[Rfam]
RNA sequence: UUUCCCUGAUGACUCCUUCUUAGUGCCACGUGUCUGGGCCACUGAACCCAAUGAUGGAACUGAGGAUCUGAGGAA
Numbered sequence: 001u002u003u004c005c006c007u008g009a010u011g012a013c014u015c016c017u018u019c020u021u022a023g024u025g026c027c028a029c030g031u032g033u034c035u036g037g038g039c040c041a042c043u044g045a046a047c048c049c050a051a052u053g054a055u056g057g058a059a060c061u062g063a064g065g066a067u068c069u070g071a072g073g074a075a
Base pairs, nucleotide, nucleotide: 001075002074003073004072
RNA: Small nucleolar RNA SNORD66